[Rfam]
RNA sequence: AGCAGAUAUUAAUGAUGUGAAAAGCAUUGGGAAUCUCUCUGACAAAAAGUGAAAGAGACGUGUUGUUGCUGAAGCUGCG
Numbered sequence: 001a002g003c004a005g006a007u008a009u010u011a012a013u014g015a016u017g018u019g020a021a022a023a024g025c026a027u028u029g030g031g032a033a034u035c036u037c038u039c040u041g042a043c044a045a046a047a048a049g050u051g052a053a054a055g056a057g058a059c060g061u062g063u064u065g066u067u068g069c070u071g072a073a074g075c076u077g078c079g
Stems, first nucleotide, its partner, number of pairs: 002078004007073001